[Rfam]
Rfam assigns this 63-nucleotide RNA sequence from Pteropus alecto to the family "Ma3 gene ribosomal frameshift signal". Pairs were carried over by alignment from the consensus structure, which is taken from published work. Rfam 15.1 lists 565 matches to the family in 155 species. A reference for the family is Wills et al. (2006), "A functional -1 ribosomal frameshift signal in the human paraneoplastic Ma3 gene", J Biol Chem. Lineage of the source: Eukaryota > Euteleostomi > Dipnotetrapodomorpha > Pteropodidae > Pteropus. It is annotated as a frameshift element.

RNA sequence: AGGAAACGAGGACGGGUUCGGGGAGAUGAGUCCCCCCGAGUCCUCCUCGGACAAAUAGGCUCA
Number, nucleotide and partner (000 for none) at each position: 001a000002g000003g000004a000005a000006a000007c000008g000009a000010g000011g000012a000013c000014g047015g042016g041017u040018u039019c038020g037021g036022g035023g034024a000025g000026a000027u000028g062029a061030g060031u059032c058033c000034c023035c022036c021037c020038g019039a018040g017041u016042c015043c000044u000045c000046c000047u014048c000049g000050g000051a000052c000053a000054a000055a000056u000057a000058g032059g031060c030061u029062c028063a000